[Rfam]
RNA sequence: GGUCAAUGAUCAAACCUUUGACUUGAUUCUAGAGAUGUGUUGUCUUAAAAGUCAUGCUAAAUAUAGUUGCACUUAGGACC
Numbered sequence: 001g002g003u004c005a006a007u008g009a010u011c012a013a014a015c016c017u018u019u020g021a022c023u024u025g026a027u028u029c030u031a032g033a034g035a036u037g038u039g040u041u042g043u044c045u046u047a048a049a050a051g052u053c054a055u056g057c058u059a060a061a062u063a064u065a066g067u068u069g070c071a072c073u074u075a076g077g078a079c080c
Stems, first nucleotide, its partner, number of pairs: 001080004005073001007071002
Dot-bracket structure: (((((.((.............................................................)).)...))))
Small nucleolar RNA SNORD115: an 80-nucleotide sequence from Carlito syrichta. The organism belongs to Carlito, within Eukaryota. By type it is a C/D-box small nucleolar RNA. For this family Rfam cites "Identification of brain-specific and imprinted small nucleolar RNA genes exhibiting an unusual genomic organization" (Cavaille et al., Proc Natl Acad Sci U S A, 2000). The match comes from Rfam's covariance-model search (40 bits).